[Rfam]
Alphaproteobacterial sRNA ar35: a 142-nucleotide sequence from Ensifer meliloti. The pairing is the family consensus, mapped onto this sequence. The sequence is in the family's curated seed alignment. The organism belongs to Ensifer meliloti, within Bacteria. For this family Rfam cites "A survey of sRNA families in alpha-proteobacteria" (del Val et al., RNA Biol, 2012).

RNA sequence: AUCGGCAUUGCUUAUGAGCGCUGAUAACUCGCCGCUCGCAAUUGCUGCAUCGUUUUCGACUUUUGACCACGGAUGUACUGGCACUGGUUUGGUAAGCGAUGAUGAGGAAGGUCGGUGCGGUUUCGCCCCGGCCUUUUUUGUU
Numbered sequence: 001a002u003c004g005g006c007a008u009u010g011c012u013u014a015u016g017a018g019c020g021c022u023g024a025u026a027a028c029u030c031g032c033c034g035c036u037c038g039c040a041a042u043u044g045c046u047g048c049a050u051c052g053u054u055u056u057c058g059a060c061u062u063u064u065g066a067c068c069a070c071g072g073a074u075g076u077a078c079u080g081g082c083a084c085u086g087g088u089u090u091g092g093u094a095a096g097c098g099a100u101g102a103u104g105a106g107g108a109a110g111g112u113c114g115g116u117g118c119g120g121u122u123u124c125g126c127c128c129c130g131g132c133c134u135u136u137u138u139u140g141u142u
Base pairs, nucleotide, nucleotide: 003047004046005045006044007042008041009040016037017036018035019034020033049100050099051098052097053096054095055094058089059088060087061086064083065082067081068080069079102141103140104139105138106137107136108135109134110133111132112131113130114129115128117126118125119124